[Rfam]
The record is a 59-nucleotide sequence from Rhodococcus sp. P1Y, which matches "msiK RNA" in Rfam. By type it is a cis-regulatory element. Pairs were carried over by alignment from the consensus structure, which is taken from published work. Lineage of the source: Bacteria > Actinomycetota > Mycobacteriales > Nocardiaceae > Rhodococcus.
RNA sequence: ACCCGUCGACACCCCACUCGGAUCGUCCGGCACGUUCCUGCCGGUGGAGGGAUCUACUU
Numbered sequence: 001a002c003c004c005g006u007c008g009a010c011a012c013c014c015c016a017c018u019c020g021g022a023u024c025g026u027c028c029g030g031c032a033c034g035u036u037c038c039u040g041c042c043g044g045u046g047g048a049g050g051g052a053u054c055u056a057c058u059u
Stems, first nucleotide, its partner, number of pairs: 010051001012049001014047003027044006